[Rfam]
RNA sequence: UGAGAGAACUAUGCUGAAGGAACUCGGCAAAUUGCCUCCGUAACUUCGGGAUAAGGAGGCCUCUGUUCUGGGCAACCAGGGCAGAGGGGCACAGACCAGGGGGUGGCAACUGUUUAGCAAAAACACAGGGCUCUGCGAAAUCGCAAGAUGACGUAUAGGGUCUGACGCCUGCCCGGUGCCGGAAGGUUAAGAGGAGAGGUGCAAGCUUUGAAUCGAAGCCCCGGUAAACGGCGGCCGUAACUAUAACGGUCCUAAGGUAGCGAAAUUCCUUGUCGGGUAAGUUCCGACCUGCACGAAUGGCGUAAUGACUUCCCCGCUGUCUCCAGCAUAGACUCA
Numbered sequence: 001u002g003a004g005a006g007a008a009c010u011a012u013g014c015u016g017a018a019g020g021a022a023c024u025c026g027g028c029a030a031a032u033u034g035c036c037u038c039c040g041u042a043a044c045u046u047c048g049g050g051a052u053a054a055g056g057a058g059g060c061c062u063c064u065g066u067u068c069u070g071g072g073c074a075a076c077c078a079g080g081g082c083a084g085a086g087g088g089g090c091a092c093a094g095a096c097c098a099g100g101g102g103g104u105g106g107c108a109a110c111u112g113u114u115u116a117g118c119a120a121a122a123a124c125a126c127a128g129g130g131c132u133c134u135g136c137g138a139a140a141u142c143g144c145a146a147g148a149u150g151a152c153g154u155a156u157a158g159g160g161u162c163u164g165a166c167g168c169c170u171g172c173c174c175g176g177u178g179c180c181g182g183a184a185g186g187u188u189a190a191g192a193g194g195a196g197a198g199g200u201g202c203a204a205g206c207u208u209u210g211a212a213u214c215g216a217a218g219c220c221c222c223g224g225u226a227a228a229c230g231g232c233g234g235c236c237g238u239a240a241c242u243a244u245a246a247c248g249g250u251c252c253u254a255a256g257g258u259a260g261c262g263a264a265a266u267u268c269c270u271u272g273u274c275g276g277g278u279a280a281g282u283u284c285c286g287a288c289c290u291g292c293a294c295g296a297a298u299g300g301c302g303u304a305a306u307g308a309c310u311u312c313c314c315c316g317c318u319g320u321c322u323c324c325a326g327c328a329u330a331g332a333c334u335c336a
Stems, first nucleotide, its partner, number of pairs: 001336004009331008018322003035059005044049001060087012088092001100315004105310002107307002111125003128163008136153001140149003166302004171232003176229002178225005185220003191214002196209005233251006252256001262289001272288006